[Rfam]
RNA sequence: GCAGUCUCAACGGGGUGCCCGACGACGCCGACAGGCGAGGGGCUGAGAGACCGGCGCGGCGCUGCCGCCAACCGGACAACCCGAUGAACCUGACCCGGGUAAUGCCGGCGGAGGGAUUUGAGCGACAGGCCGUU
Numbered sequence: 001g002c003a004g005u006c007u008c009a010a011c012g013g014g015g016u017g018c019c020c021g022a023c024g025a026c027g028c029c030g031a032c033a034g035g036c037g038a039g040g041g042g043c044u045g046a047g048a049g050a051c052c053g054g055c056g057c058g059g060c061g062c063u064g065c066c067g068c069c070a071a072c073c074g075g076a077c078a079a080c081c082c083g084a085u086g087a088a089c090c091u092g093a094c095c096c097g098g099g100u101a102a103u104g105c106c107g108g109c110g111g112a113g114g115g116a117u118u119u120g121a122g123c124g125a126c127a128g129g130c131c132g133u134u
Base pairs, nucleotide, nucleotide: 006122007121008120009119010118011083012082013081014080017043018042019041020040051075052074053073054072089114090113091112095108096107097106098105
The family of this 134-nucleotide sequence from a Kiloniellaceae bacterium is "TPP riboswitch aptamer (THI element)". It scores 58 bits against the family's covariance model. Vitamin B(1) in its active form thiamin pyrophosphate (TPP) is an essential coenzyme that is synthesised by coupling of pyrimidine and thiazole moieties in bacteria. The family's consensus secondary structure is taken from published work.